[Rfam]
RNA sequence: CCUUCCAAAACAUGUCGUAGCAUGACCUGAUCCGAGAUAGUCGGUGGAGUAGAGCACGGAUUGGGGAAGUUGGGGGAGAAAUCCCUCGCUCUCCUGUCAAACUCCAAACACACCGUCGUCGAAGACAAUCAGAGUCCGGACUACUGGGGUAAGCCUGUAGUCCGUAAGGGAGACAACCCAGCCCGUGGUUAAGGUCCCCAAGUGUCGACUAAGUGUUAACACUAAAGGGUGUCCCAGGCCCUAGACAGCUGGAAGGUUAGCUUAGAAGCAGCUACCCUUUAAAGAGUGCGUAACAGCUCACCAGUCGAGGUUUGGGGCCCCGAAAAUGGACGGGGCUCAAGUCGACCACCGAGACCACGGAGUACCGAAAGGUAAUCUUGUAGGAAGGCGUUGCGCUCGGGCAGAAGCUGGGCUGUGAAGUCCAGUGGACCGUGCGGAAACGAAAAU
Numbered sequence: 001c002c003u004u005c006c007a008a009a010a011c012a013u014g015u016c017g018u019a020g021c022a023u024g025a026c027c028u029g030a031u032c033c034g035a036g037a038u039a040g041u042c043g044g045u046g047g048a049g050u051a052g053a054g055c056a057c058g059g060a061u062u063g064g065g066g067a068a069g070u071u072g073g074g075g076g077a078g079a080a081a082u083c084c085c086u087c088g089c090u091c092u093c094c095u096g097u098c099a100a101a102c103u104c105c106a107a108a109c110a111c112a113c114c115g116u117c118g119u120c121g122a123a124g125a126c127a128a129u130c131a132g133a134g135u136c137c138g139g140a141c142u143a144c145u146g147g148g149g150u151a152a153g154c155c156u157g158u159a160g161u162c163c164g165u166a167a168g169g170g171a172g173a174c175a176a177c178c179c180a181g182c183c184c185g186u187g188g189u190u191a192a193g194g195u196c197c198c199c200a201a202g203u204g205u206c207g208a209c210u211a212a213g214u215g216u217u218a219a220c221a222c223u224a225a226a227g228g229g230u231g232u233c234c235c236a237g238g239c240c241c242u243a244g245a246c247a248g249c250u251g252g253a254a255g256g257u258u259a260g261c262u263u264a265g266a267a268g269c270a271g272c273u274a275c276c277c278u279u280u281a282a283a284g285a286g287u288g289c290g291u292a293a294c295a296g297c298u299c300a301c302c303a304g305u306c307g308a309g310g311u312u313u314g315g316g317g318c319c320c321c322g323a324a325a326a327u328g329g330a331c332g333g334g335g336c337u338c339a340a341g342u343c344g345a346c347c348a349c350c351g352a353g354a355c356c357a358c359g360g361a362g363u364a365c366c367g368a369a370a371g372g373u374a375a376u377c378u379u380g381u382a383g384g385a386a387g388g389c390g391u392u393g394c395g396c397u398c399g400g401g402c403a404g405a406a407g408c409u410g411g412g413c414u415g416u417g418a419a420g421u422c423c424a425g426u427g428g429a430c431c432g433u434g435c436g437g438a439a440a441c442g443a444a445a446a447u
Stems, first nucleotide, its partner, number of pairs: 001388006011024005026134001027132005036120003040117001042115005052105001053103002059098003063094005072087006138163007146156002168179003183360007193350003202347001204346006227321003231318010248305005254278003259273003279283001284299001288297002361378002363374004389442001391439002394436003398432003407426008
Rfam assigns this 447-nucleotide part of an RNA from Methanosalsum zhilinae to the family "Archaeal large subunit ribosomal RNA".
Pairs were carried over by alignment from the consensus structure, which is taken from published work.